[Rfam]
RNA sequence: GAUGGAAGCUGCAGGAACCAACCUUGUGGACAAAUGAGAAAAUACUCUUGUCUACAGAAGGCAGCGAUUCCUCAUAAAUAUGGAGAUCUCUGUCUGACUUAGUUAGGACACCUGGCUAAGUUUGAUCGUUCCCCUCCAUACAGC
Numbered sequence: 001g002a003u004g005g006a007a008g009c010u011g012c013a014g015g016a017a018c019c020a021a022c023c024u025u026g027u028g029g030a031c032a033a034a035u036g037a038g039a040a041a042a043u044a045c046u047c048u049u050g051u052c053u054a055c056a057g058a059a060g061g062c063a064g065c066g067a068u069u070c071c072u073c074a075u076a077a078a079u080a081u082g083g084a085g086a087u088c089u090c091u092g093u094c095u096g097a098c099u100u101a102g103u104u105a106g107g108a109c110a111c112c113u114g115g116c117u118a119a120g121u122u123u124g125a126u127c128g129u130u131c132c133c134c135u136c137c138a139u140a141c142a143g144c
Stems, first nucleotide, its partner, number of pairs: 004070003008065005025056007036047003082137004090128001092126003096122009
A member of the RNA family "Small Cajal body specific RNA 3" from Jaculus jaculus, 144 nucleotides long. By type it is a small Cajal body RNA. On this family, see Huttenhofer et al., EMBO J 2001: "RNomics: an experimental approach that identifies 201 candidates for novel, small, non-messenger RNAs in mouse". A search with the family's covariance model found it, with a score of 125 bits. scaRNAs are a specific class of small nuclear RNAs which localise to the Cajal bodies and guide the modification of RNA polymerase II transcribed spliceosomal RNAs U1, U2, U4, U5 and U12. Lineage of the source: Eukaryota > Opisthokonta > Metazoa > Eutheria > Jaculus.